RNA sequence: CUUAGAUAUAAGGGGGUCACAGCAGGAGCGUUGAAUGUCGCGGCCUCGAUCGAACCCAUGUACUGAUGGGUCGUGAAUCCUGCU
Number, nucleotide and partner (000 for none) at each position: 001c000002u000003u000004a000005g000006a000007u000008a000009u000010a000011a000012g000013g047014g046015g045016g044017u043018c042019a000020c000021a084022g083023c082024a081025g080026g079027a078028g041029c040030g039031u000032u000033g000034a000035a000036u000037g000038u000039c030040g029041c028042g018043g017044c016045c015046u014047c013048g000049a000050u000051c073052g072053a071054a000055c069056c068057c000058a000059u000060g000061u000062a000063c000064u000065g000066a000067u000068g056069g055070g000071u053072c052073g051074u000075g000076a000077a000078u027079c026080c025081u024082g023083c022084u021
Mammalian CPEB3 ribozyme: an 84-nucleotide RNA from Zootermopsis nevadensis. The match comes from Rfam's covariance-model search (40 bits).